RNA sequence: UGGCUCAAUUUCCUGGGGUGUGAGCUCAGCCUACCUCAUUUUUCCUCAGACAAGCCUAGAGUAGAGGACCAAGCAUCCUUCCCUUAAAUAGGGAACCUCACCUGGACUGUCCUAGCCUCAUAGUU
Numbered sequence: 001u002g003g004c005u006c007a008a009u010u011u012c013c014u015g016g017g018g019u020g021u022g023a024g025c026u027c028a029g030c031c032u033a034c035c036u037c038a039u040u041u042u043u044c045c046u047c048a049g050a051c052a053a054g055c056c057u058a059g060a061g062u063a064g065a066g067g068a069c070c071a072a073g074c075a076u077c078c079u080u081c082c083c084u085u086a087a088a089u090a091g092g093g094a095a096c097c098u099c100a101c102c103u104g105g106a107c108u109g110u111c112c113u114a115g116c117c118u119c120a121u122a123g124u125u
Base pairs, nucleotide, nucleotide: 002056003055004054005053015044016043017042018041020039021038022037023036024035066119067118070115072113073112080106081105082104090098091097092096
Background:
Shown here is a 125-nucleotide RNA sequence from Carlito syrichta, a member of the family "Small Cajal body specific RNA 21". The family's RNA type in Rfam is small Cajal body RNA. Its family is annotated with nucleolus, Cajal body and RNA processing in the Gene Ontology. The family's consensus secondary structure was predicted with RNAalifold. About the family: scaRNAs are a specific class of small nuclear RNAs which localise to the Cajal bodies and guide the modification of RNA polymerase II transcribed spliceosomal RNAs U1, U2, U4, U5 and U12. ACA68 (SCARNA21) is a member of the H/ACA class of snoRNAs that guide the sites of modification of uridines to pseudouridines. This snoRNA was identified by computational screening and its expression in mouse experimentally verified by Northern blot and primer extension analysis. ACA68 is proposed to guide the pseudouridylation of residue U19 in U12 snRNA. The organism belongs to Carlito, within Eukaryota. The match comes from Rfam's covariance-model search (81 bits).